RNA sequence: ACACGUCUUCAGGGCGGGGUGAAAGUCCCCACCGGCGGUAUGUGACACCUCACGCAGCGCGAGUUGCGUGCGUCACGAGCCCGCGAGCGCCUGCCAUCGUUGCUUUCGCGACACCGGCAGGGUCAGCAGAUCUGGUGCGAAGCCAGAGCCGACGGUCAUAGUCCGGAUGAGAGAAGAUGCGU
Numbered sequence: 001a002c003a004c005g006u007c008u009u010c011a012g013g014g015c016g017g018g019g020u021g022a023a024a025g026u027c028c029c030c031a032c033c034g035g036c037g038g039u040a041u042g043u044g045a046c047a048c049c050u051c052a053c054g055c056a057g058c059g060c061g062a063g064u065u066g067c068g069u070g071c072g073u074c075a076c077g078a079g080c081c082c083g084c085g086a087g088c089g090c091c092u093g094c095c096a097u098c099g100u101u102g103c104u105u106u107c108g109c110g111a112c113a114c115c116g117g118c119a120g121g122g123u124c125a126g127c128a129g130a131u132c133u134g135g136u137g138c139g140a141a142g143c144c145a146g147a148g149c150c151g152a153c154g155g156u157c158a159u160a161g162u163c164c165g166g167a168u169g170a171g172a173g174a175a176g177a178u179g180c181g182u
Stems, first nucleotide, its partner, number of pairs: 004179007017029003031162002033151002035084004087127002131147005153165003
A member of the RNA family "FMN riboswitch aptamer (RFN element)" from Pandoraea pnomenusa, 182 nucleotides long.
The match comes from Rfam's covariance-model search (100 bits).
The family's consensus secondary structure is taken from published work.
The organism belongs to Pandoraea, within Bacteria.